[Rfam]
RNA: cspA thermoregulator
RNA sequence: GCAGGUUUGAAGUAAAGACCACAGAGCAUUCGAAUAGAGCAGUCCUUCAAAGGUUAUCCGUUGAUACCCCGGUAGUGAACUUUCCCUUUAUCGCUUUAAAUCUGUAGUCCAGACCGUAACGCCGCAAGGCUCAUUUAUUUUUUUAAAGGUAAUUCACUAUGUCCGGUAAAAUGACUGGUAUCGUAAAAUGGUUCAACGCUGACAAAGGCUUUGGCUUCAUCACUCCUGACGAUGGUUCUAAAGACGUGUUCGUACACUUCUCUGCUAUCCAGAACGAAGGCUACAAAUCUCUGGACGAAGGUCAGAAAGUUUCCUUCACCAUCGAAAGCGGCGCUAAAGGCCCGGCAGCUGGCAACGUAACCAGCCUGUAAGCUUAAAAAGCUCAAAAUUAUUAAGUCCCUGCCAAACGGCGGGGAUUUUUUU
Numbered sequence: 001g002c003a004g005g006u007u008u009g010a011a012g013u014a015a016a017g018a019c020c021a022c023a024g025a026g027c028a029u030u031c032g033a034a035u036a037g038a039g040c041a042g043u044c045c046u047u048c049a050a051a052g053g054u055u056a057u058c059c060g061u062u063g064a065u066a067c068c069c070c071g072g073u074a075g076u077g078a079a080c081u082u083u084c085c086c087u088u089u090a091u092c093g094c095u096u097u098a099a100a101u102c103u104g105u106a107g108u109c110c111a112g113a114c115c116g117u118a119a120c121g122c123c124g125c126a127a128g129g130c131u132c133a134u135u136u137a138u139u140u141u142u143u144u145a146a147a148g149g150u151a152a153u154u155c156a157c158u159a160u161g162u163c164c165g166g167u168a169a170a171a172u173g174a175c176u177g178g179u180a181u182c183g184u185a186a187a188a189u190g191g192u193u194c195a196a197c198g199c200u201g202a203c204a205a206a207g208g209c210u211u212u213g214g215c216u217u218c219a220u221c222a223c224u225c226c227u228g229a230c231g232a233u234g235g236u237u238c239u240a241a242a243g244a245c246g247u248g249u250u251c252g253u254a255c256a257c258u259u260c261u262c263u264g265c266u267a268u269c270c271a272g273a274a275c276g277a278a279g280g281c282u283a284c285a286a287a288u289c290u291c292u293g294g295a296c297g298a299a300g301g302u303c304a305g306a307a308a309g310u311u312u313c314c315u316u317c318a319c320c321a322u323c324g325a326a327a328g329c330g331g332c333g334c335u336a337a338a339g340g341c342c343c344g345g346c347a348g349c350u351g352g353c354a355a356c357g358u359a360a361c362c363a364g365c366c367u368g369u370a371a372g373c374u375u376a377a378a379a380a381g382c383u384c385a386a387a388a389u390u391a392u393u394a395a396g397u398c399c400c401u402g403c404c405a406a407a408c409g410g411c412g413g414g415g416a417u418u419u420u421u422u423u
Base pairs, nucleotide, nucleotide: 004020005019006018007017008016025227026226028224030222037218038217041216042215043214044213045207046206047205053203054202055201056200059198060197061196062195063194064193066192067191068190072160073159074158075157076156077155084149085148087146088145090143093109095107121130122129123128163178164177165176166175167174230324231323232322233321234320235319243251244250254312256310257309258308259307261306262305263304264303265301266300268295269294270293271292272291273290276289277288329344330343331342333341334340335339345369346368347367348366349364350363351362352361371383372382373381374380394419395418396417397416398415399414400413401412402411403410404409